[Rfam]
RNA sequence: AGUCCCGUAGGGUAGUGGUAAUCCUUCUGGUCUUUGGAACCGGAGACAGCGGUUCGACUCCGCUCGGGACUA
Number, nucleotide and partner (000 for none) at each position: 001a071002g070003u069004c068005c067006c066007g065008u000009a000010g025011g024012g023013u000014a000015g000016u000017g000018g000019u000020a000021a000022u000023c012024c011025u010026u000027c043028u042029g041030g040031u039032c000033u000034u000035u000036g000037g000038a000039a031040c030041c029042g028043g027044a000045g000046a000047c000048a064049g063050c062051g061052g060053u000054u000055c000056g000057a000058c000059u000060c052061c051062g050063c049064u048065c007066g006067g005068g004069a003070c002071u001072a000
Rfam assigns this 72-nucleotide sequence from Methanobacterium congolense to the family "tRNA". Rfam links the family to the GO term triplet codon-amino acid adaptor activity. Taxonomically the source falls in Methanobacterium (Archaea, Methanobacteriati, Methanobacteria, Methanobacteriales). Transfer RNA (tRNA) molecules are approximately 80 nucleotides in length.